Rfam assigns this 72-nucleotide RNA sequence to the family "Clostridium-PBP RNA".
[Rfam]
RNA sequence: AAAAAGUGCUAUAGUAAUCAAAGUUUAGGGGAGAAUGGUUCCCACAUAAACAGACAGGAGGAAAAUAUUAUG
Numbered sequence: 001a002a003a004a005a006g007u008g009c010u011a012u013a014g015u016a017a018u019c020a021a022a023g024u025u026u027a028g029g030g031g032a033g034a035a036u037g038g039u040u041c042c043c044a045c046a047u048a049a050a051c052a053g054a055c056a057g058g059a060g061g062a063a064a065a066u067a068u069u070a071u072g
Base pairs, nucleotide, nucleotide: 029043030042031041032040033039